[Rfam]
RNA sequence: UUCACAGUUGGAAUGGAAGCUCAUAUAAACCUUGAAUUCGGCAAGGCGUUUCUACCUAAGACCUAAUCUUAGACUAUGAGAUAUUCUGCGGUACCG
Dot-bracket structure: .................(.((((((....(((((.......))))).........((((((.....))))))..)))))).)..............
Purine riboswitch aptamer: a 96-nucleotide RNA from Mageeibacillus indolicus. About the family: Riboswitches are metabolite binding domains within certain messenger RNAs that serve as precision sensors for their corresponding targets. Allosteric rearrangement of mRNA structure is mediated by ligand binding, and this results in modulation of gene expression. A class of riboswitches that selectively recognises guanine and becomes saturated at concentrations as low as 5 nM. In Bacillus subtilis, this mRNA motif is located on at least five separate transcriptional units that together encode 17 genes that are mostly involved in purine transport and purine nucleotide biosynthesis. The source organism's lineage runs through Bacteria, Bacillati, Clostridia, Eubacteriales and Mageeibacillus indolicus. The base pairs follow the family's consensus structure, which is taken from published work.